[Rfam]
A member of the RNA family "small nucleolar RNA snoR137" from Leersia perrieri, 143 nucleotides long.
The organism belongs to Leersia, within Eukaryota.
Pairs were carried over by alignment from the consensus structure, which was predicted with RNAalifold.
Gene Ontology terms of the family: RNA processing and nucleolus.
A search with the family's covariance model found it, with a score of 64 bits.
Nucleotides: 143
Stems, first nucleotide, its partner, number of pairs: 003065006018052009079137005085131001092123003096118005
Number, partner (000 for none) and nucleotide at each position: 001000g002000u003065u004064g005063c006062u007061u008060c009000a010000c011000g012000a013000c014000u015000g016000g017000a018052a019051g020050a021049a022048u023047g024046g025045c026044c027000u028000g029000a030000u031000a032000a033000u034000a035000a036000a037000a038000u039000u040000g041000u042000u043000u044026g045025g046024u047023c048022a049021u050020u051019c052018u053000g054000u055000a056000g057000a058000g059000a060008g061007g062006a063005g064004c065003a066000u067000a068000g069000a070000u071000u072000g073000a074000u075000u076000u077000u078000a079137g080136c081135c082134a083133g084000a085131a086000u087000u088000a089000a090000a091000c092123a093122g094121c095000a096118u097117g098116g099115c100114g101000c102000u103000u104000c105000a106000c107000u108000u109000c110000a111000c112000c113000g114100c115099g116098u117097c118096a119000g120000u121094g122093u123092u124000a125000c126000c127000u128000g129000u130000c131085u132000c133083c134082u135081g136080g137079c138000a139000c140000a141000u142000u143000u